[Rfam]
RNA: Archaeal large subunit ribosomal RNA, nucleotides 2079 to 2661
Organism: Natronosalvus rutilus
RNA sequence: CCCCCAAGGGGAAGCGAAGACCCUAUAGAGCUUUACUGCAGGCUGUCACUGAGACGUGGUCGCCAUUGUGCAGCAUAGGUAGGAGCCGUUACACAGGUACCCGCGCUAGCGGGCCACCGAGGCAUCACUGAAAUACUACCCGAUGGUGACUGCGACUCUCACUCCUGGCGGAGGACACUGGUAGCCGGGCAGUUUGACUGGGGCGGUACGCGCUUGAAAAGAUAUCGAGCGCGCCCCAAGGUUUCCUCACUCGGGUCGGAGACCCGAGAAAGAGCGCAAGAGCAUACGGAAGCCUGACAGUGUCCGGCACAACAACGGACGCUGACGCGAAAGCGUGGUCUAGCGAACCAAUUAGCCCGCCCAAUGCGGGCAAUUGCUGACAGAAAAGCUACCUUAGGGAUAACAGAGUCGUCACCCGCAAGAGCACAUAUCGACCGGGUGGCUUGCUACCUCGAUGUCGGUUCCCUCCAUCCUGCCUGUGCAGAAGCAGGCAAGGGUGAGGUUGUUCGCCUAUUAAAGGAGGUCGUGAGCUGGGUUUAGACCGUCGUGAGACAGGUCGGCUGCUAUCUAUUGGGGGUGUUAC
Numbered sequence: 001c002c003c004c005c006a007a008g009g010g011g012a013a014g015c016g017a018a019g020a021c022c023c024u025a026u027a028g029a030g031c032u033u034u035a036c037u038g039c040a041g042g043c044u045g046u047c048a049c050u051g052a053g054a055c056g057u058g059g060u061c062g063c064c065a066u067u068g069u070g071c072a073g074c075a076u077a078g079g080u081a082g083g084a085g086c087c088g089u090u091a092c093a094c095a096g097g098u099a100c101c102c103g104c105g106c107u108a109g110c111g112g113g114c115c116a117c118c119g120a121g122g123c124a125u126c127a128c129u130g131a132a133a134u135a136c137u138a139c140c141c142g143a144u145g146g147u148g149a150c151u152g153c154g155a156c157u158c159u160c161a162c163u164c165c166u167g168g169c170g171g172a173g174g175a176c177a178c179u180g181g182u183a184g185c186c187g188g189g190c191a192g193u194u195u196g197a198c199u200g201g202g203g204c205g206g207u208a209c210g211c212g213c214u215u216g217a218a219a220a221g222a223u224a225u226c227g228a229g230c231g232c233g234c235c236c237c238a239a240g241g242u243u244u245c246c247u248c249a250c251u252c253g254g255g256u257c258g259g260a261g262a263c264c265c266g267a268g269a270a271a272g273a274g275c276g277c278a279a280g281a282g283c284a285u286a287c288g289g290a291a292g293c294c295u296g297a298c299a300g301u302g303u304c305c306g307g308c309a310c311a312a313c314a315a316c317g318g319a320c321g322c323u324g325a326c327g328c329g330a331a332a333g334c335g336u337g338g339u340c341u342a343g344c345g346a347a348c349c350a351a352u353u354a355g356c357c358c359g360c361c362c363a364a365u366g367c368g369g370g371c372a373a374u375u376g377c378u379g380a381c382a383g384a385a386a387a388g389c390u391a392c393c394u395u396a397g398g399g400a401u402a403a404c405a406g407a408g409u410c411g412u413c414a415c416c417c418g419c420a421a422g423a424g425c426a427c428a429u430a431u432c433g434a435c436c437g438g439g440u441g442g443c444u445u446g447c448u449a450c451c452u453c454g455a456u457g458u459c460g461g462u463u464c465c466c467u468c469c470a471u472c473c474u475g476c477c478u479g480u481g482c483a484g485a486a487g488c489a490g491g492c493a494a495g496g497g498u499g500a501g502g503u504u505g506u507u508c509g510c511c512u513a514u515u516a517a518a519g520g521a522g523g524u525c526g527u528g529a530g531c532u533g534g535g536u537u538u539a540g541a542c543c544g545u546c547g548u549g550a551g552a553c554a555g556g557u558c559g560g561c562u563g564c565u566a567u568c569u570a571u572u573g574g575g576g577g578u579g580u581u582a583c
Stems, first nucleotide, its partner, number of pairs: 001577007010569003014564002022398004027394002029390005035193004042185007051158003055154014078140005085123003100113005162173004196209001197207003210232006235338002241293006247273002250268006274283002298324009326335001328333001349376005355371005407448003411445001412442007422432002459534001460532004464526001465523005472497002476491005500512004540558004544553003